This 358-nucleotide RNA sequence from Ehrlichia sennetsu belongs to the Rfam family "Bacterial RNase P class A".
Taxonomically the source falls in Ehrlichia sennetsu (Bacteria, Pseudomonadati, Pseudomonadota, Ehrlichia).
It is annotated as a ribozyme.
It is one of the family's seed sequences.
RNA sequence: CGAGGUGCCUGAGGUAGUUGCUGCUCUUUUGAUGAUUCAAAAAUUGAGGAGAGGAAAGUCCGGGCUCCACGGGAGAAUGGUAGCGGAUAACUUCCGCCGGGCUUAGCCCAGGACAAGUGCCACAGAAAAUAACCGCCUGUUUUUUUCAGGUAAGGGUGAAAAGGUGCGGUAAGAGCGCACCGCGUUCGCGGCAACGUGGAUGGCAUAGGUAAACUCUACCAGGAGCAAGACCAAACAGAAGAAGAGUGUGCUCUCGCGCGAUAGAUUUUUCGGGUAGGUCGCUUGAAGUGCAUAGUAAUGUGUACCCUAGAUGAAUGACUACCGUAUACAGAACCCGGCUUAUGGGGCACCUCGUUUU
Numbered sequence: 001c002g003a004g005g006u007g008c009c010u011g012a013g014g015u016a017g018u019u020g021c022u023g024c025u026c027u028u029u030u031g032a033u034g035a036u037u038c039a040a041a042a043a044u045u046g047a048g049g050a051g052a053g054g055a056a057a058g059u060c061c062g063g064g065c066u067c068c069a070c071g072g073g074a075g076a077a078u079g080g081u082a083g084c085g086g087a088u089a090a091c092u093u094c095c096g097c098c099g100g101g102c103u104u105a106g107c108c109c110a111g112g113a114c115a116a117g118u119g120c121c122a123c124a125g126a127a128a129a130u131a132a133c134c135g136c137c138u139g140u141u142u143u144u145u146u147c148a149g150g151u152a153a154g155g156g157u158g159a160a161a162a163g164g165u166g167c168g169g170u171a172a173g174a175g176c177g178c179a180c181c182g183c184g185u186u187c188g189c190g191g192c193a194a195c196g197u198g199g200a201u202g203g204c205a206u207a208g209g210u211a212a213a214c215u216c217u218a219c220c221a222g223g224a225g226c227a228a229g230a231c232c233a234a235a236c237a238g239a240a241g242a243a244g245a246g247u248g249u250g251c252u253c254u255c256g257c258g259c260g261a262u263a264g265a266u267u268u269u270u271c272g273g274g275u276a277g278g279u280c281g282c283u284u285g286a287a288g289u290g291c292a293u294a295g296u297a298a299u300g301u302g303u304a305c306c307c308u309a310g311a312u313g314a315a316u317g318a319c320u321a322c323c324g325u326a327u328a329c330a331g332a333a334c335c336c337g338g339c340u341u342a343u344g345g346g347g348c349a350c351c352u353c354g355u356u357u358u
Stems, first nucleotide, its partner, number of pairs: 001354010011343001013323007021051002024048003029043001056341003060338005065225004073259001075257001078221005083097005098111001099109004112216002117214002119210003133155002135151005163181006182204001183202008229280004238271006251264002254261002288305007